[Rfam]
RNA sequence: UGUUUGCCGUGAGGACUCCUACUAGGAUGGUAUCUGAAGGGGUUAGCUUUUAAGUGUAUUCCUCCUCUGAUUAUACCAAUACUGAAUAUGGUUUCUGAGCAAAAC
Numbered sequence: 001u002g003u004u005u006g007c008c009g010u011g012a013g014g015a016c017u018c019c020u021a022c023u024a025g026g027a028u029g030g031u032a033u034c035u036g037a038a039g040g041g042g043u044u045a046g047c048u049u050u051u052a053a054g055u056g057u058a059u060u061c062c063u064c065c066u067c068u069g070a071u072u073a074u075a076c077c078a079a080u081a082c083u084g085a086a087u088a089u090g091g092u093u094u095c096u097g098a099g100c101a102a103a104a105c
Base pairs, nucleotide, nucleotide: 002105003104004102005101006100007099038066039065040064041063042062
A member of the RNA family "Small nucleolar RNA Z118/Z121/Z120" from Sorghum bicolor, 105 nucleotides long. The family's RNA type in Rfam is C/D-box small nucleolar RNA. The family has 7 seed sequences and 435 matches in Rfam 15.1.